A member of the RNA family "Group II catalytic intron D1-D4-2" from Pontibacter sp. SGAir0037, 122 nucleotides long. Pairs were carried over by alignment from the consensus structure. Rfam describes the family as follows. Group II introns are found in rRNA, tRNA and mRNA of organelles in fungi, plants and protists, and also in mRNA in bacteria. It scores 91 bits against the family's covariance model. On this family, see Bonen and Vogel, Trends Genet 2001: "The ins and outs of group II introns". NCBI's taxonomy places the organism under Bacteria, Pseudomonadati, Bacteroidota, Hymenobacteraceae, Pontibacter.
[Rfam]
RNA sequence: GAGGGUAGGCCCUCCGCAGACGACUGUCAGGAGUAGUCUGCAAACCACCUUAUGCUGCCGGGGGCGGAAACUCCCCUGGUGGUGAACGAUAAGGAAAAACGGGAGCUAUGACUCUCGAAGGU
Numbered sequence: 001g002a003g004g005g006u007a008g009g010c011c012c013u014c015c016g017c018a019g020a021c022g023a024c025u026g027u028c029a030g031g032a033g034u035a036g037u038c039u040g041c042a043a044a045c046c047a048c049c050u051u052a053u054g055c056u057g058c059c060g061g062g063g064g065c066g067g068a069a070a071c072u073c074c075c076c077u078g079g080u081g082g083u084g085a086a087c088g089a090u091a092a093g094g095a096a097a098a099a100c101g102g103g104a105g106c107u108a109u110g111a112c113u114c115u116c117g118a119a120g121g122u
Base pairs, nucleotide, nucleotide: 001015003013004012005011016041017040018039019038020037021036023034024033025032046121048094049093050092051091052090053089054083055082057080058079059078061076062075063074064073100117101116102115103114104113